[Rfam]
RNA sequence: GGAGAGGUGUCCGAGCGGUUUAAGGAGCUAGUCUUGAAAACUAGUGACCCGAAAGGGCCGUGGGUUCGAAUCCCACCCUCUCCG
Numbered sequence: 001g002g003a004g005a006g007g008u009g010u011c012c013g014a015g016c017g018g019u020u021u022a023a024g025g026a027g028c029u030a031g032u033c034u035u036g037a038a039a040a041c042u043a044g045u046g047a048c049c050c051g052a053a054a055g056g057g058c059c060g061u062g063g064g065u066u067c068g069a070a071u072c073c074c075a076c077c078c079u080c081u082c083c084g
Stems, first nucleotide, its partner, number of pairs: 001083007010026003028044005060076005